The record is a 134-nucleotide sequence from Strongylocentrotus purpuratus, which matches "Small nucleolar RNA SNORA57" in Rfam. The family's consensus secondary structure was predicted with PFOLD. The family's RNA type in Rfam is H/ACA-box small nucleolar RNA. NCBI's taxonomy places the organism under Eukaryota, Metazoa, Eumetazoa, Deuterostomia, Strongylocentrotus. Its family is annotated with nucleolus and RNA processing in the Gene Ontology. Rfam describes the family as follows. U99 belongs to the H/ACA class of snoRNAs which are thought to guide the sites of modification of uridines to pseudouridines, the target for this family is unknown.
RNA sequence: CCUCCUUUUCUUAGCAUCUCUGAACUCUCCCCCAUGUUUAUGAGAUGAAUGCAACCAGGAGGAAGAUAAACAUGAUGAACCUUCGGUGUCAGGGUCCUUAUGCCCUGGUCCCAUCCUCUAGCAUCAUUACAGGG
Numbered sequence: 001c002c003u004c005c006u007u008u009u010c011u012u013a014g015c016a017u018c019u020c021u022g023a024a025c026u027c028u029c030c031c032c033c034a035u036g037u038u039u040a041u042g043a044g045a046u047g048a049a050u051g052c053a054a055c056c057a058g059g060a061g062g063a064a065g066a067u068a069a070a071c072a073u074g075a076u077g078a079a080c081c082u083u084c085g086g087u088g089u090c091a092g093g094g095u096c097c098u099u100a101u102g103c104c105c106u107g108g109u110c111c112c113a114u115c116c117u118c119u120a121g122c123a124u125c126a127u128u129a130c131a132g133g134g
Stems, first nucleotide, its partner, number of pairs: 001062005015047006073126005089108007